[Rfam]
RNA sequence: GUAAAAACCGGCGAUGGAGUUCGCCAUAACCCCGCAGUGAACGCGGUAAUAACUCCUACCUUCCC
Number, nucleotide and partner (000 for none) at each position: 001g000002u000003a000004a000005a000006a000007a000008c000009c000010g025011g024012c023013g022014a000015u000016g056017g055018a054019g053020u052021u051022c013023g012024c011025c010026a000027u000028a000029a000030c000031c000032c046033c045034g044035c043036a000037g000038u000039g000040a000041a000042c000043g035044c034045g033046g032047u000048a000049a000050u000051a021052a020053c019054u018055c017056c016057u000058a000059c000060c000061u000062u000063c000064c000065c000